mir-399 microRNA precursor family: a 102-nucleotide RNA sequence from Dichanthelium oligosanthes. The base pairs follow the family's consensus structure, which was predicted with PFOLD. Rfam's curators write: mir-399 was identified in both Arabidopsis thaliana and Oryza sativa computationally and was later experimentally verified. mir-399 is thought to target mRNAs coding for a phosphatase transporter. The match comes from Rfam's covariance-model search (68 bits).

[Rfam]
RNA sequence: AGCUGCAUUGCUGGGCAACUUCUCCUUUGGCAGAUGUACCAGAAGGUGCUGGGGCUUCGUUCCAGGGCUACUGCCAAAGGAAAUUUGCCCCGGAAUUCAUCU
Numbered sequence: 001a002g003c004u005g006c007a008u009u010g011c012u013g014g015g016c017a018a019c020u021u022c023u024c025c026u027u028u029g030g031c032a033g034a035u036g037u038a039c040c041a042g043a044a045g046g047u048g049c050u051g052g053g054g055c056u057u058c059g060u061u062c063c064a065g066g067g068c069u070a071c072u073g074c075c076a077a078a079g080g081a082a083a084u085u086u087g088c089c090c091c092g093g094a095a096u097u098c099a100u101c102u
Stems, first nucleotide, its partner, number of pairs: 005098001007096003011092001013090006023081003028076006036068001